Description: Bacterial large subunit ribosomal RNA: a 437-nucleotide part of an RNA from Johnsonella ignava. Pairs were carried over by alignment from the consensus structure, which is taken from published work.
RNA sequence: CUCCCCGAAAUAGUUUUAGGACUAGCCUGCAGGGAGUCUGGCGGAGGUAGAGCACUGGAUUCUUGCGGGGGCGUCAAAGCCUACCAAGAGAUACCAAACUCCGAAUGCCGCACAGAUGAUCCUGCGGAGUCAGGCCGUAUGAGAUAAGUCGGACGGCCGAGAGGGAAAGAGCCCAGACCCGCAGUUAAGGUCCCAAAGUAUGCGUUAAGUGGAAAAGGAUGUGAGAUUUCCCAGACAGCUAGGACGUUGGCUUAGAAGCAGCCAUACGUUUAAAGAGUGCGUAACAGCUCACUAGUCGAGAGGUCCUGCGCCGAAAAUGUCCGGGGCUAAAACGCAGCACCGAAACACGGGGAUGCCGCAAGGCAUCGGUAGGGGAGCAUUCCUGAGAGCAAAGAAGCUGUGCCGAAAGGGAUAGUGGAGUUACAGGAAGGGAGAAU
Numbered sequence: 001c002u003c004c005c006c007g008a009a010a011u012a013g014u015u016u017u018a019g020g021a022c023u024a025g026c027c028u029g030c031a032g033g034g035a036g037u038c039u040g041g042c043g044g045a046g047g048u049a050g051a052g053c054a055c056u057g058g059a060u061u062c063u064u065g066c067g068g069g070g071g072c073g074u075c076a077a078a079g080c081c082u083a084c085c086a087a088g089a090g091a092u093a094c095c096a097a098a099c100u101c102c103g104a105a106u107g108c109c110g111c112a113c114a115g116a117u118g119a120u121c122c123u124g125c126g127g128a129g130u131c132a133g134g135c136c137g138u139a140u141g142a143g144a145u146a147a148g149u150c151g152g153a154c155g156g157c158c159g160a161g162a163g164g165g166a167a168a169g170a171g172c173c174c175a176g177a178c179c180c181g182c183a184g185u186u187a188a189g190g191u192c193c194c195a196a197a198g199u200a201u202g203c204g205u206u207a208a209g210u211g212g213a214a215a216a217g218g219a220u221g222u223g224a225g226a227u228u229u230c231c232c233a234g235a236c237a238g239c240u241a242g243g244a245c246g247u248u249g250g251c252u253u254a255g256a257a258g259c260a261g262c263c264a265u266a267c268g269u270u271u272a273a274a275g276a277g278u279g280c281g282u283a284a285c286a287g288c289u290c291a292c293u294a295g296u297c298g299a300g301a302g303g304u305c306c307u308g309c310g311c312c313g314a315a316a317a318u319g320u321c322c323g324g325g326g327c328u329a330a331a332a333c334g335c336a337g338c339a340c341c342g343a344a345a346c347a348c349g350g351g352g353a354u355g356c357c358g359c360a361a362g363g364c365a366u367c368g369g370u371a372g373g374g375g376a377g378c379a380u381u382c383c384u385g386a387g388a389g390c391a392a393a394g395a396a397g398c399u400g401u402g403c404c405g406a407a408a409g410g411g412a413u414a415g416u417g418g419a420g421u422u423a424c425a426g427g428a429a430g431g432g433a434g435a436a437u
Stems, first nucleotide, its partner, number of pairs: 001377006011024005026129001027127007035120001036117005041111004050102001051100002056096003061091003067085002069082004133158006140151003163174003178351004184346002189341003198338001201336005217312002221309003225305006238296005244269003249263003270274001275290001279288002352367006378432001380429006388422003397416005403410002

Rfam's curators put it in the seed alignment.